Shown here is a 128-nucleotide RNA from Spirodela intermedia, a member of the family "MIR168 microRNA precursor family". The family has 10 seed sequences and 518 matches in Rfam 15.1. The base pairs follow the family's consensus structure, which was predicted with WAR. The source organism's lineage runs through Eukaryota, Embryophyta, Tracheophyta, Magnoliopsida and Spirodela. Rfam links the family to the GO terms RISC complex and miRNA-mediated post-transcriptional gene silencing. The literature on the family includes a 2005 paper in Plant Cell by Lu et al., "Novel and mechanical stress-responsive MicroRNAs in Populus trichocarpa that are absent from Arabidopsis". The match comes from Rfam's covariance-model search (82 bits).
RNA sequence: CCGCUCGCCGUCUCUGGUUCGCUUGGUGCAGGUCGGGAACGGAGCCCCGUCUUCCUUACCAGUGAUGUAGCCCUCACAUGGGGAUCCGCCCUCGCCUUGCAUCAACUGAAUCAGAGGGGGAGGCGGAG
Numbered sequence: 001c002c003g004c005u006c007g008c009c010g011u012c013u014c015u016g017g018u019u020c021g022c023u024u025g026g027u028g029c030a031g032g033u034c035g036g037g038a039a040c041g042g043a044g045c046c047c048c049g050u051c052u053u054c055c056u057u058a059c060c061a062g063u064g065a066u067g068u069a070g071c072c073c074u075c076a077c078a079u080g081g082g083g084a085u086c087c088g089c090c091c092u093c094g095c096c097u098u099g100c101a102u103c104a105a106c107u108g109a110a111u112c113a114g115a116g117g118g119g120g121a122g123g124c125g126g127a128g
Stems, first nucleotide, its partner, number of pairs: 013115002017111004023105010034094004040088002